[Rfam]
RNA sequence: CAGUAUAAAAGGCAAAUCCGUUGAAAAGCGGGGACGCAAAGCUAUGGGUCUAAGGCGGAAUGCCGCUAUGACAGCCGGUUGCCAAA
Numbered sequence: 001c002a003g004u005a006u007a008a009a010a011g012g013c014a015a016a017u018c019c020g021u022u023g024a025a026a027a028g029c030g031g032g033g034a035c036g037c038a039a040a041g042c043u044a045u046g047g048g049u050c051u052a053a054g055g056c057g058g059a060a061u062g063c064c065g066c067u068a069u070g071a072c073a074g075c076c077g078g079u080u081g082c083c084a085a086a
Stems, first nucleotide, its partner, number of pairs: 012037002017032006040080004046076002048072003055066004

The family of this 86-nucleotide RNA sequence from Dethiobacter alkaliphilus is "c-di-GMP-I riboswitch aptamer". Gene Ontology term of the family: cyclic-di-GMP binding. Pairs were carried over by alignment from the consensus structure, which is taken from published work. Rfam's curators write: GEMM was predicted in a large-scale screen for bacterial structured RNA regulatory elements. Lineage of the source: Bacteria > Bacillati > Dethiobacteraceae > Dethiobacter > Dethiobacter alkaliphilus.